A member of the RNA family "gabT RNA" from Pseudomonas sp. TAD18, 62 nucleotides long. A search with the family's covariance model found it, with a score of 48 bits. It is annotated as a cis-regulatory element.
RNA sequence: UGUGGCCGGGUGCGCCAUGCCAGUCGAUCAUCGCAUGCUGGCAUGAGUGUCUCCUUGGCGCG
Numbered sequence: 001u002g003u004g005g006c007c008g009g010g011u012g013c014g015c016c017a018u019g020c021c022a023g024u025c026g027a028u029c030a031u032c033g034c035a036u037g038c039u040g041g042c043a044u045g046a047g048u049g050u051c052u053c054c055u056u057g058g059c060g061c062g
Base pairs, nucleotide, nucleotide: 001062002061003060004059006057016045017044018043019042020041021040022039023038024037025033026032